[Rfam]
RNA sequence: AUUGAUAAUGGCAAACUUAUCGAAAGGUAAGGACGCAAAGCCACGGGUCUAACGCGCAAGCUAUGACAGCCGGGCCGCCAAAA
Numbered sequence: 001a002u003u004g005a006u007a008a009u010g011g012c013a014a015a016c017u018u019a020u021c022g023a024a025a026g027g028u029a030a031g032g033a034c035g036c037a038a039a040g041c042c043a044c045g046g047g048u049c050u051a052a053c054g055c056g057c058a059a060g061c062u063a064u065g066a067c068a069g070c071c072g073g074g075c076c077g078c079c080a081a082a083a
Stems, first nucleotide, its partner, number of pairs: 003080002011036002016031006034069001040075003044072003047067003
RNA: c-di-GMP-I-GGC riboswitch aptamer
Organism: Paenibacillus abyssi